[Rfam]
RNA: CyVA-1 RNA
RNA sequence: CGACGAGAGCAAGUAUUUUGCUGUUUAACUUGUGAAUUGCCCCCCAAAGGAGAACGAUGUCAGGGGAGCAAGUCGUCA
Numbered sequence: 001c002g003a004c005g006a007g008a009g010c011a012a013g014u015a016u017u018u019u020g021c022u023g024u025u026u027a028a029c030u031u032g033u034g035a036a037u038u039g040c041c042c043c044c045c046a047a048a049g050g051a052g053a054a055c056g057a058u059g060u061c062a063g064g065g066g067a068g069c070a071a072g073u074c075g076u077c078a
Stems, first nucleotide, its partner, number of pairs: 002077005009033004038070003042066004